A member of the RNA family "U5 spliceosomal RNA" from Monodon monoceros, 116 nucleotides long. The source organism's lineage runs through Eukaryota, Amniota, Eutheria, Artiodactyla and Monodon. A search with the family's covariance model found it, with a score of 92 bits. The family has 180 seed sequences and 28,527 matches in Rfam 15.1. U5 RNA is a component of both types of known spliceosome. The precise function of this molecule is unknown, though it is known that the 5' loop is required for splice site selection and p220 binding, and that both the 3' stem-loop and the Sm site are important for Sm protein binding and cap methylation. By type it is a spliceosomal small nuclear RNA. The base pairs follow the family's consensus structure, which is taken from published work.

RNA sequence: AUACUCUGGUUUCUCUUCAGAUCAUAUAAAUCUUUCGCUAUUUACUAAAGAUUUCCAUGGAGAGGAACAAUUCUGAGUAUUUACCCAAUUUUUUGAGGCCUUACUCUUGUGAGGCA
Dot-bracket structure: ..((((..(((((((((((........((((((((...........))))))))...)))))))))))......))))...................((((((......)))))).